[Rfam]
RNA: L25-Gammaproteobacteria ribosomal protein leader
RNA sequence: UUUGCUGCUGGGUCGCCUGUAGCAAA
Numbered sequence: 001u002u003u004g005c006u007g008c009u010g011g012g013u014c015g016c017c018u019g020u021a022g023c024a025a026a
Base pairs, nucleotide, nucleotide: 001026002025003024004023005022006021007020008019010017011016